[Rfam]
RNA: FMN riboswitch aptamer (RFN element)
RNA sequence: AUCGUGCUCCGGGGGUCGGUGAAACUCCGAACCGGCGGUAGAGUCCGCGAACCGGGACGGCCCUGAGAUCAGGGGCCAUCCCGGCCGAUCCGGUGGAAUUCCGGAACCGACAGUCACAGUCUGGAUGAAGGUGCACGAG
Number, nucleotide and partner (000 for none) at each position: 001a000002u000003c137004g136005u135006g134007c133008u000009c131010c130011g000012g000013g000014g000015g000016u000017c029018g028019g027020u000021g000022a000023a000024a000025c000026u000027c019028c018029g017030a000031a120032c119033c109034g108035g048036c047037g046038g045039u000040a000041g000042a000043g107044u106045c038046c037047g036048c035049g000050a000051a000052c084053c083054g082055g081056g080057a079058c000059g000060g000061c000062c000063c000064u000065g000066a000067g000068a000069u000070c000071a000072g000073g000074g000075g000076c000077c000078a000079u057080c056081c055082c054083g053084g052085c000086c000087g000088a000089u105090c104091c103092g102093g101094u000095g000096g000097a000098a000099u000100u000101c093102c092103g091104g090105a089106a044107c043108c034109g033110a000111c123112a122113g121114u000115c000116a000117c000118a000119g032120u031121c113122u112123g111124g000125a000126u000127g000128a000129a000130g010131g009132u000133g007134c006135a005136c004137g003138a000139g000